The family of this 83-nucleotide RNA from Sedimentibacter hydroxybenzoicus is "c-di-GMP-I riboswitch aptamer". It scores 71 bits against the family's covariance model.

[Rfam]
RNA sequence: GAAUUGAAAAGGUAAAGCUGUCGAAAGGCAGUGUCACAAAGCUAUAGGGCCUAAGGGAAUUUCUAAGGCAGCCAGUUGCCAAU
Numbered sequence: 001g002a003a004u005u006g007a008a009a010a011g012g013u014a015a016a017g018c019u020g021u022c023g024a025a026a027g028g029c030a031g032u033g034u035c036a037c038a039a040a041g042c043u044a045u046a047g048g049g050c051c052u053a054a055g056g057g058a059a060u061u062u063c064u065a066a067g068g069c070a071g072c073c074a075g076u077u078g079c080c081a082a083u
Base pairs, nucleotide, nucleotide: 012037013036017032018031019030020029021028022027040077041076042075043074047073048072049069050068051067056063057062